[Rfam]
RNA: Small nucleolar RNA SNORD69
Organism: Otus sunia
RNA sequence: UAUGCAGAGCAUAUGAGAAAGCACUGAAACUGACUGAAAUGUGUUCAGUCCAGCACUGAGCUUUGUGUC
Numbered sequence: 001u002a003u004g005c006a007g008a009g010c011a012u013a014u015g016a017g018a019a020a021g022c023a024c025u026g027a028a029a030c031u032g033a034c035u036g037a038a039a040u041g042u043g044u045u046c047a048g049u050c051c052a053g054c055a056c057u058g059a060g061c062u063u064u065g066u067g068u069c
Stems, first nucleotide, its partner, number of pairs: 002068009